[Rfam]
RNA: THF-II riboswitch (folE RNA)
Organism: Mesorhizobium ciceri
RNA sequence: CCGUUCAACUCGUUCCUCCGCCGAGAGGGACUACGGGAG
Numbered sequence: 001c002c003g004u005u006c007a008a009c010u011c012g013u014u015c016c017u018c019c020g021c022c023g024a025g026a027g028g029g030a031c032u033a034c035g036g037g038a039g
Stems, first nucleotide, its partner, number of pairs: 001036004012031007